[Rfam]
Nucleotides: 074
Stems, first nucleotide, its partner, number of pairs: 002072003006068002010064003016059003021054002024051007
Number, partner (000 for none) and nucleotide at each position: 001000c002072u003071a004070u005000a006068u007067g008000u009000a010064c011063c012062c013000u014000g015000u016059a017058g018057a019000a020000c021054c022053g023000a024051a025050u026049u027048u028047g029046u030045g031000u032000u033000c034000u035000c036000g037000u038000a039000u040000a041000u042000c043000a044000u045030c046029g047028c048027a049026a050025a051024u052000a053022c054021g055000u056000c057018u058017c059016u060000a061000c062012g063011g064010g065000a066000a067007u068006a069000c070004a071003u072002g073000g074000a